[Rfam]
Overview: Rfam assigns this 105-nucleotide RNA sequence from Agrobacterium albertimagni to the family "RcsR1 sRNA". RcsR1 (rhizobial cold and salinity stress riboregulator 1) trans-acting sRNA, formerly known as SmelC587, is a stress-related riboregulator, conserved in Sinorhizobium, Rhizobium and Agrobacterium. Its family is annotated with negative regulation of translation in response to stress and sRNA-mediated gene silencing in the Gene Ontology. It scores 68 bits against the family's covariance model. On this family, see Baumgardt et al., RNA Biol 2015: "The stress-related, rhizobial small RNA RcsR1 destabilizes the autoinducer synthase encoding mRNA sinI in Sinorhizobium meliloti".
RNA sequence: AGACCUUUGCUUGGUGGUGGGCACGCUGACGCGGCCUUGACCAGUCAUGUCUUCUCGACGAUUGACCCCAAAGCCGCCCGGAAAAUCUCCUGAGGCGGCUUUUUU
Numbered sequence: 001a002g003a004c005c006u007u008u009g010c011u012u013g014g015u016g017g018u019g020g021g022c023a024c025g026c027u028g029a030c031g032c033g034g035c036c037u038u039g040a041c042c043a044g045u046c047a048u049g050u051c052u053u054c055u056c057g058a059c060g061a062u063u064g065a066c067c068c069c070a071a072a073g074c075c076g077c078c079c080g081g082a083a084a085a086u087c088u089c090c091u092g093a094g095g096c097g098g099c100u101u102u103u104u105u
Base pairs, nucleotide, nucleotide: 011044012043013042014041015040017038019037020036021035022034024033025032026031048060049059050058051057071101072100073099074098075097076096077095078094079092080091081090